[Rfam]
RNA sequence: GCCCUGUGGUUGCUGGGCCCUGCUGUGCCCGUGCAGCGCCCCAGCUGGGAGAACGGGCCCCCAGCGACUCUGUGGCGCACGCAGGGAGUCUCUGAGCCCUGAGCAGCCUCCACAGCCCGCUCACAGGCACAGCC
Numbered sequence: 001g002c003c004c005u006g007u008g009g010u011u012g013c014u015g016g017g018c019c020c021u022g023c024u025g026u027g028c029c030c031g032u033g034c035a036g037c038g039c040c041c042c043a044g045c046u047g048g049g050a051g052a053a054c055g056g057g058c059c060c061c062c063a064g065c066g067a068c069u070c071u072g073u074g075g076c077g078c079a080c081g082c083a084g085g086g087a088g089u090c091u092c093u094g095a096g097c098c099c100u101g102a103g104c105a106g107c108c109u110c111c112a113c114a115g116c117c118c119g120c121u122c123a124c125a126g127g128c129a130c131a132g133c134c
Stems, first nucleotide, its partner, number of pairs: 001058004007050001010047001012045006020036004070126001072124004081116002085111002088108001090106002093103001
This 134-nucleotide sequence from Notiomystis cincta belongs to the Rfam family "Small nucleolar RNA SNORA84". Gene Ontology terms of the family: RNA processing and nucleolus. The match comes from Rfam's covariance-model search (69 bits). By type it is an H/ACA-box small nucleolar RNA.